[Rfam]
RNA: U4 spliceosomal RNA
Organism: Cebus imitator
RNA sequence: AGCUUUGCGCAGUGGCAGUAUCAUAGCCAAUGAGGUUUAUCCGAGAUGAGAUUAUCGCUAAUUGAAAACUUUCCCCAAUACCCCGCCAUGAUGACAUGCAAAUAGAGUCACCAUUGACAAUUUUUGACAGUCCCUAGGGA
Dot-bracket structure: ...................(((.(.(.(.....((.....))..).)).)))................................(.((((.((((.(.......).)))).))).).)............(((....)))